[Rfam]
RNA: Alphaproteobacterial ar15
Organism: Rhizobium sp. AC44/96
RNA sequence: AGCUAAUGCAGAUGGCGGUCUUCUCCCAGUUCCGCCGCAGUAGCUGUUCCCCUCUGGAGGUUUUUGACCUUCACACUUUAUGGGCCGCGUUUUCGCUGGCCCAUUUUU
Numbered sequence: 001a002g003c004u005a006a007u008g009c010a011g012a013u014g015g016c017g018g019u020c021u022u023c024u025c026c027c028a029g030u031u032c033c034g035c036c037g038c039a040g041u042a043g044c045u046g047u048u049c050c051c052c053u054c055u056g057g058a059g060g061u062u063u064u065u066g067a068c069c070u071u072c073a074c075a076c077u078u079u080a081u082g083g084g085c086c087g088c089g090u091u092u093u094c095g096c097u098g099g100c101c102c103a104u105u106u107u108u
Stems, first nucleotide, its partner, number of pairs: 001045005007039003015035004055073007081103006087096003